The record is a 53-nucleotide RNA sequence, which matches "Mu-gpT-DE RNA" in Rfam. The family's RNA type in Rfam is small RNA. The family's consensus secondary structure is taken from published work.
RNA sequence: CCCUGACAGCCGCAUCCUGUGGCUGACAUUAGCCACGACAGGAGUUUGACAUG
Dot-bracket structure: .((((.(((((.........))))).............))))...........